[Rfam]
RNA: c-di-GMP-I riboswitch aptamer
Organism: Anaerobacillus alkaliphilus
RNA sequence: ACAAGUAAAGGGCAAAACCAUUGAAAGGUGGUGACGCAAAACUACAGGGACUAAGGGUUCAACCUAUGUUAGCCAGUUGCCAAA
Numbered sequence: 001a002c003a004a005g006u007a008a009a010g011g012g013c014a015a016a017a018c019c020a021u022u023g024a025a026a027g028g029u030g031g032u033g034a035c036g037c038a039a040a041a042c043u044a045c046a047g048g049g050a051c052u053a054a055g056g057g058u059u060c061a062a063c064c065u066a067u068g069u070u071a072g073c074c075a076g077u078u079g080c081c082a083a084a
Stems, first nucleotide, its partner, number of pairs: 012037002017032006040078004047074002049070003056064003